[Rfam]
RNA sequence: GAGUUUGGCCGCUAGGGUUCCGAUGCACAGAAUGUGCAUGACUGGUCCGAGAGCAGCCACUGAACGGGGGAGACAUCCUGUUCAGGUGCACGGCGGGACAAAAGCCCGGGAGAC
Numbered sequence: 001g002a003g004u005u006u007g008g009c010c011g012c013u014a015g016g017g018u019u020c021c022g023a024u025g026c027a028c029a030g031a032a033u034g035u036g037c038a039u040g041a042c043u044g045g046u047c048c049g050a051g052a053g054c055a056g057c058c059a060c061u062g063a064a065c066g067g068g069g070g071a072g073a074c075a076u077c078c079u080g081u082u083c084a085g086g087u088g089c090a091c092g093g094c095g096g097g098a099c100a101a102a103a104g105c106c107c108g109g110g111a112g113a114c
Stems, first nucleotide, its partner, number of pairs: 007058003011054002015048002020045002022042001023039006059087002061084009089109001091112001095107003
Guanidine-I riboswitch aptamer: a 114-nucleotide RNA sequence from Allorhizobium borbori.
Taxonomically the source falls in Allorhizobium (Bacteria, Pseudomonadati, Pseudomonadota, Alphaproteobacteria).
The match comes from Rfam's covariance-model search (88 bits).